[Rfam]
RNA sequence: CCACUCUGGAGAGCAGCGCCCGUCCCCGACCGCGGGGGUCGAGGCGCUCGCCCACGGUGAAAGCCGCGCCCCGAGACCACUCGGCGCGCGGUGAAUCUCUCAGGCAACCGAGACAGAGGGGGAGU
Numbered sequence: 001c002c003a004c005u006c007u008g009g010a011g012a013g014c015a016g017c018g019c020c021c022g023u024c025c026c027c028g029a030c031c032g033c034g035g036g037g038g039u040c041g042a043g044g045c046g047c048u049c050g051c052c053c054a055c056g057g058u059g060a061a062a063g064c065c066g067c068g069c070c071c072c073g074a075g076a077c078c079a080c081u082c083g084g085c086g087c088g089c090g091g092u093g094a095a096u097c098u099c100u101c102a103g104g105c106a107a108c109c110g111a112g113a114c115a116g117a118g119g120g121g122g123a124g125u
Stems, first nucleotide, its partner, number of pairs: 001121002004118005015048006050105003054100001057099001059097001063092007
RNA: Glycine riboswitch aptamer